[Rfam]
RNA sequence: AUCCUAUACAGAUGUAUUCAACGCAAGCCAGUUGGGCAUCUCCCUGUAGGAUAAAGUUUAUCAGAAGUUCUAGCAACAAUUCUCAUUGUGUGGCUCUACGGUCGAAAUGGGAUGAGUUAGGGUGGAAUAGGUUAACCGUAAGACCUUGAGUUGCAAGACUCUAAAAUUGACCUAGAGGUGUGGAUUUCUUAAUUUUCGCAUUUUCUAGUUACGGCAUA
Numbered sequence: 001a002u003c004c005u006a007u008a009c010a011g012a013u014g015u016a017u018u019c020a021a022c023g024c025a026a027g028c029c030a031g032u033u034g035g036g037c038a039u040c041u042c043c044c045u046g047u048a049g050g051a052u053a054a055a056g057u058u059u060a061u062c063a064g065a066a067g068u069u070c071u072a073g074c075a076a077c078a079a080u081u082c083u084c085a086u087u088g089u090g091u092g093g094c095u096c097u098a099c100g101g102u103c104g105a106a107a108u109g110g111g112a113u114g115a116g117u118u119a120g121g122g123u124g125g126a127a128u129a130g131g132u133u134a135a136c137c138g139u140a141a142g143a144c145c146u147u148g149a150g151u152u153g154c155a156a157g158a159c160u161c162u163a164a165a166a167u168u169g170a171c172c173u174a175g176a177g178g179u180g181u182g183g184a185u186u187u188c189u190u191a192a193u194u195u196u197c198g199c200a201u202u203u204u205c206u207a208g209u210u211a212c213g214g215c216a217u218a
Stems, first nucleotide, its partner, number of pairs: 001052008010041006018035005023029001067123008081112007092103002095100001129146005136214005141167001148161005172208007179200006
RNA: IS605-orfB-I RNA